[Rfam]
RNA sequence: UAUAUAAGCUACUACAAUGGUAUCUACUGAAUCAGGUCAGAUUGGGAACAAAGCAGCCUUAAGGGAGCUCUAUCAUGUGUAGUAGCUUUUAUUAUA
Number, nucleotide and partner (000 for none) at each position: 001u000002a000003u000004a092005u091006a090007a089008g088009c085010u084011a083012c082013u081014a080015c077016a000017a076018u075019g074020g073021u072022a071023u000024c067025u066026a000027c064028u063029g000030a000031a000032u000033c000034a059035g058036g057037u056038c000039a000040g000041a000042u051043u050044g049045g000046g000047a000048a000049c044050a043051a042052a000053g000054c000055a000056g037057c036058c035059u034060u000061a000062a000063g028064g027065g000066a025067g024068c000069u000070c000071u022072a021073u020074c019075a018076u017077g015078u000079g000080u014081a013082g012083u011084a010085g009086c000087u000088u008089u007090u006091a005092u004093u000094a000095u000096a000
RNA: Bacterial small signal recognition particle RNA